[Rfam]
RNA sequence: AACGCUGUAUGUGACUGGCGAAGUCAGUGGAAUCAACCACGAGGGAGCAUACAAACAAAGCGUACCGUUCGCCUGGGAGAAGUAU
Numbered sequence: 001a002a003c004g005c006u007g008u009a010u011g012u013g014a015c016u017g018g019c020g021a022a023g024u025c026a027g028u029g030g031a032a033u034c035a036a037c038c039a040c041g042a043g044g045g046a047g048c049a050u051a052c053a054a055a056c057a058a059a060g061c062g063u064a065c066c067g068u069u070c071g072c073c074u075g076g077g078a079g080a081a082g083u084a085u
Stems, first nucleotide, its partner, number of pairs: 006053007015044002017073005027040004063079001065077002

This 85-nucleotide RNA from Paenibacillus polymyxa belongs to the Rfam family "ZMP/ZTP riboswitch aptamer (pfl RNA motif)".